[Rfam]
RNA sequence: CGCCUCCUUAUGUCCUUUUCACAAUGUACUUUCCCACACAUCUUUGUGUCAUCCGCAAAUUUUAGCAACUGUAUCAAUUUGCGGAUGACACAAAGAUUGUGGGAAAGUACAUUGUGAAAAGGACAUAAGGAGGCG
Numbered sequence: 001c002g003c004c005u006c007c008u009u010a011u012g013u014c015c016u017u018u019u020c021a022c023a024a025u026g027u028a029c030u031u032u033c034c035c036a037c038a039c040a041u042c043u044u045u046g047u048g049u050c051a052u053c054c055g056c057a058a059a060u061u062u063u064a065g066c067a068a069c070u071g072u073a074u075c076a077a078u079u080u081g082c083g084g085a086u087g088a089c090a091c092a093a094a095g096a097u098u099g100u101g102g103g104a105a106a107g108u109a110c111a112u113u114g115u116g117a118a119a120a121g122g123a124c125a126u127a128a129g130g131a132g133g134c135g
Base pairs, nucleotide, nucleotide: 001135002134003133005131006130007129008128009127010126012124013123014122015121016120017119018118019117022114023113024112025111026110027109028108029107030106031105032104033103034102035101036100037099038098
Source information
Rfam assigns this 135-nucleotide RNA from Scyliorhinus torazame to the family "mir-130 microRNA precursor family". It scores 41 bits against the family's covariance model. On this family, see Houbaviy et al., Dev Cell 2003: "Embryonic stem cell-specific MicroRNAs". Taxonomically the source falls in Scyliorhinus (Eukaryota, Opisthokonta, Craniata, Elasmobranchii).